A member of the RNA family "SAM riboswitch aptamer (S box leader)" from Bacillus cereus, 107 nucleotides long. The source organism's lineage runs through Bacteria, Bacillati, Bacillota, Caryophanales and Bacillus cereus. The base pairs follow the family's consensus structure, which is taken from published work.
[Rfam]
RNA sequence: UUCUUAUUAAGAGAGAUGGAGGGACUGGCCCGAUGAAAUCUCAGCAACAGGCUAUAAAAGUACUGUGCUAAGUCCAGCAAACGUAUGAAGCGUUUGGAAGAUGAGGG
Numbered sequence: 001u002u003c004u005u006a007u008u009a010a011g012a013g014a015g016a017u018g019g020a021g022g023g024a025c026u027g028g029c030c031c032g033a034u035g036a037a038a039u040c041u042c043a044g045c046a047a048c049a050g051g052c053u054a055u056a057a058a059a060g061u062a063c064u065g066u067g068c069u070a071a072g073u074c075c076a077g078c079a080a081a082c083g084u085a086u087g088a089a090g091c092g093u094u095u096g097g098a099a100g101a102u103g104a105g106g107g
Base pairs, nucleotide, nucleotide: 001107002106003105004104005103006102007101008100013042014041015040016039017038021031022030023029025077026076027075028074043069044068045067046066048065049064051061052060053059073099078096079095080094081093082092083091